Rfam assigns this 49-nucleotide sequence to the family "eL15-Euryarchaeota ribosomal protein leader". It is annotated as a cis-regulatory leader. Pairs were carried over by alignment from the consensus structure, which is taken from published work.

RNA sequence: GCGGAUAAUAAUCCGUAGGGAUGUAACCCAAACGGGGUUGAACCGCAAA
Numbered sequence: 001g002c003g004g005a006u007a008a009u010a011a012u013c014c015g016u017a018g019g020g021a022u023g024u025a026a027c028c029c030a031a032a033c034g035g036g037g038u039u040g041a042a043c044c045g046c047a048a049a
Stems, first nucleotide, its partner, number of pairs: 001016005018044002025039005